Overview:
A member of the RNA family "c-di-GMP-I riboswitch aptamer" from Salsuginibacillus halophilus, 95 nucleotides long. The family's consensus secondary structure is taken from published work. The source organism's lineage runs through Bacteria, Bacillota, Bacilli, Bacillaceae and Salsuginibacillus. GEMM was predicted in a large-scale screen for bacterial structured RNA regulatory elements.

RNA sequence: CGCAAAGAUGGGCAAAACAGCUGAAAGGCUGUGACGCAAAGCUUAGGGCCUAAUGGGAAAAGCAGCGCUAUCCUUAUGGUCGCCUGGCCGCCGGG
Numbered sequence: 001c002g003c004a005a006a007g008a009u010g011g012g013c014a015a016a017a018c019a020g021c022u023g024a025a026a027g028g029c030u031g032u033g034a035c036g037c038a039a040a041g042c043u044u045a046g047g048g049c050c051u052a053a054u055g056g057g058a059a060a061a062g063c064a065g066c067g068c069u070a071u072c073c074u075u076a077u078g079g080u081c082g083c084c085u086g087g088c089c090g091c092c093g094g095g
Stems, first nucleotide, its partner, number of pairs: 012037002017032006041088003045085003048080003055074004